[Rfam]
RNA sequence: CCCCAGUCCAAUAGGUCAUGGAAUGGCCCCGUGGUGCUGAAAGGGCA
Numbered sequence: 001c002c003c004c005a006g007u008c009c010a011a012u013a014g015g016u017c018a019u020g021g022a023a024u025g026g027c028c029c030c031g032u033g034g035u036g037c038u039g040a041a042a043g044g045g046c047a
Base pairs, nucleotide, nucleotide: 001045002044003043004039005038006037007036008034009033014028015027016026017025018024